[Rfam]
RNA sequence: GGGGCGGAAGCCGAAAAGCCCUCCAAAGACAAAGAGUAGGCA
Dot-bracket structure: .((((....[[[.....)))).................]]].